[Rfam]
RNA sequence: AUUGGGUAAUUACUGACACGGGCGAAGAGGGUUUCCUCUCCGCCCGUUCAUGCAUGUUAGGGGCAGAUAAAAACCA
Numbered sequence: 001a002u003u004g005g006g007u008a009a010u011u012a013c014u015g016a017c018a019c020g021g022g023c024g025a026a027g028a029g030g031g032u033u034u035c036c037u038c039u040c041c042g043c044c045c046g047u048u049c050a051u052g053c054a055u056g057u058u059a060g061g062g063g064c065a066g067a068u069a070a071a072a073a074c075c076a
Stems, first nucleotide, its partner, number of pairs: 003015003018047007026039004
A member of the RNA family "tpke11" from Enterobacteriaceae bacterium strain FGI 57, 76 nucleotides long. In Yersinia located in ICR upstream dnaJ (chaperone)gene. Has temperature responsive RNA structure. A reference for the family is Rivas et al. (2001), "Computational identification of noncoding RNAs in E. coli by comparative genomics", Curr Biol. Rfam classes the family as a small RNA.